[Rfam]
RNA sequence: CCUAACUUUGAAUCUCUUCUUAGGGUGCUUCAGGCAAAGCUGGGGACCCGGGGAGAGAUGUAAGUCUGG
Dot-bracket structure: .(..((((...(((((((((..((((.((.(((......))))).)))).)))))))))..))))..).